Notes
A member of the RNA family "MIR6151 microRNA precursor family" from Nicotiana sylvestris, 71 nucleotides long. Taxonomically the source falls in Nicotiana (Eukaryota, Tracheophyta, eudicotyledons, Solanales). A search with the family's covariance model found it, with a score of 79 bits. Gene Ontology terms of the family: miRNA-mediated post-transcriptional gene silencing and RISC complex. Rfam 15.1 lists 930 matches to the family in 3 species.

RNA sequence: AAUCGUUGGAUGAGUGCGAGGCGUUGGAUUGAUUUCACUUAAUCCGAGCUCCACAUUCAUCAAGUGCUCGU
Number, nucleotide and partner (000 for none) at each position: 001a000002a000003u000004c066005g000006u064007u063008g000009g061010a060011u059012g058013a057014g056015u055016g054017c000018g052019a000020g050021g049022c048023g000024u047025u046026g045027g044028a043029u042030u041031g040032a039033u000034u000035u000036c000037a000038c000039u032040u031041a030042a029043u028044c027045c026046g025047a024048g022049c021050u020051c000052c018053a000054c016055a015056u014057u013058c012059a011060u010061c009062a000063a007064g006065u000066g004067c000068u000069c000070g000071u000